Shown here is a 49-nucleotide RNA, a member of the family "DUF2693-FD RNA". Pairs were carried over by alignment from the consensus structure, which is taken from published work. The family's RNA type in Rfam is small RNA. Rfam describes the family as follows. DUF2693-FD RNA is a non-coding RNA (ncRNA) recognised in Bacteroides by a bioinformatic analisis by Zasha Weinberg. No recognised genes.

[Rfam]
RNA sequence: ACCCUGCUGACGGAUUGAACGGCAGGCGAUAGCGAGAAUCGGGGAGAGU
Numbered sequence: 001a002c003c004c005u006g007c008u009g010a011c012g013g014a015u016u017g018a019a020c021g022g023c024a025g026g027c028g029a030u031a032g033c034g035a036g037a038a039u040c041g042g043g044g045a046g047a048g049u
Stems, first nucleotide, its partner, number of pairs: 001049002004046002007043001011021002017033001023036001027041004